RNA sequence: GGAGGCCGCGCGGGAGAGUCCCGGACCGCCCGACCGGCGGACCCGGGCGCCGAAGGAGCAAGCACUCCCUUGAAUCUCUCAGGCACCGAUACCGCGCGGGCGAG
Dot-bracket structure: .....((((((((......((((....................)))).(((((..(((...(........)....))))).))).......)))))))).....
RNA: Glycine riboswitch aptamer
Organism: Actinacidiphila guanduensis